[Rfam]
RNA sequence: UUCACCGUGAGUUGAAAUCUGAAGGAAGCCGGUGGCGGAUAUCUGACCUAACGUACAGAAACUUCAUAUAAGGCAUAUGACCAUGGGUAAGGUUGCCAAACAAACUAAAGCCCGAUAGCUAUUCGGAACAGUUAUUGUAAAUGAAGCAGGUAUAAGAUGGAAAGCCAAUGCC
Number, nucleotide and partner (000 for none) at each position: 001u016002u015003c014004a013005c000006c011007g000008u000009g000010a000011g006012u000013u004014g003015a002016a001017a000018u000019c000020u000021g000022a000023a000024g000025g000026a000027a000028g172029c000030c170031g169032g000033u000034g000035g165036c164037g000038g000039a000040u159041a158042u157043c156044u155045g000046a151047c150048c149049u148050a000051a000052c000053g000054u000055a000056c000057a000058g000059a000060a000061a000062c146063u145064u144065c143066a142067u141068a000069u000070a000071a000072g000073g138074c137075a136076u000077a000078u000079g133080a132081c131082c000083a000084u128085g113086g112087g111088u110089a000090a000091g106092g105093u104094u103095g000096c000097c000098a000099a000100a000101c000102a000103a094104a093105c092106u091107a000108a000109a000110g088111c087112c086113c085114g000115a000116u000117a000118g000119c000120u000121a000122u000123u000124c000125g000126g000127a000128a084129c000130a000131g081132u080133u079134a000135u000136u075137g074138u073139a000140a000141a067142u066143g065144a064145a063146g062147c000148a049149g048150g047151u046152a000153u000154a000155a044156g043157a042158u041159g040160g000161a000162a000163a000164g036165c035166c000167a000168a000169u031170g030171c000172c028

About this RNA: This 172-nucleotide RNA sequence from Hallella multisaccharivorax belongs to the Rfam family "Group II catalytic intron D1-D4-3". It scores 130 bits against the family's covariance model. The base pairs follow the family's consensus structure. Rfam links the family to the GO term Group II intron splicing.